Shown here is a 68-nucleotide sequence from Neogale vison, a member of the family "mir-290 microRNA precursor family". The base pairs follow the family's consensus structure, which was predicted with RNAalifold.

RNA sequence: GUGCAACUCAAACUGUGGGGGCACUUUCUGUUCUGAGUAGGGAAGUGCCGCCAUUUUUUGAGUGUCAC
Numbered sequence: 001g002u003g004c005a006a007c008u009c010a011a012a013c014u015g016u017g018g019g020g021g022c023a024c025u026u027u028c029u030g031u032u033c034u035g036a037g038u039a040g041g042g043a044a045g046u047g048c049c050g051c052c053a054u055u056u057u058u059u060g061a062g063u064g065u066c067a068c
Stems, first nucleotide, its partner, number of pairs: 006063007015054004020049009

Its family is annotated with miRNA-mediated post-transcriptional gene silencing and RISC complex in the Gene Ontology. The family is grouped with related families in Rfam's "mir-290 clan". The match comes from Rfam's covariance-model search (64 bits).